[Rfam]
Nucleotides: 094
Stems, first nucleotide, its partner, number of pairs: 005090001007088003011084019032063006
Number, partner (000 for none) and nucleotide at each position: 001000u002000u003000g004000c005090c006000u007088c008087c009086u010000a011084g012083a013082g014081u015080u016079c017078c018077u019076c020075u021074a022073a023072a024071c025070a026069c027068u028067u029066c030000u031000u032063u033062g034061g035060g036059g037058u038000c039000a040000u041000u042000u043000g044000g045000a046000g047000a048000a049000a050000a051000u052000g053000c054000c055000g056000u057000u058037g059036c060035c061034c062033u063032a064000c065000u066029g067028a068027a069026g070025u071024g072023u073022u074021u075020g076019g077018g078017g079016g080015a081014a082013c083012u084011c085000c086009g087008g088007g089000u090005g091000c092000c093000a094000a

Notes:
The family of this 94-nucleotide RNA sequence from Citrus sinensis is "mir-395 microRNA precursor family". It scores 61 bits against the family's covariance model. Lineage of the source: Eukaryota > Streptophytina > Magnoliopsida > Rutaceae > Citrus. mir-395 was identified in both Arabidopsis thaliana and Oryza sativa computationally and was later experimentally verified. mir-395 is thought to target mRNAs coding for ATP sulphurylases. The mature sequence is excised from the 3' arm of the hairpin. A reference for the family is Jones-Rhoades and Bartel (2004), "Computational Identification of Plant MicroRNAs and Their Targets, Including a Stress-Induced miRNA", Mol Cell.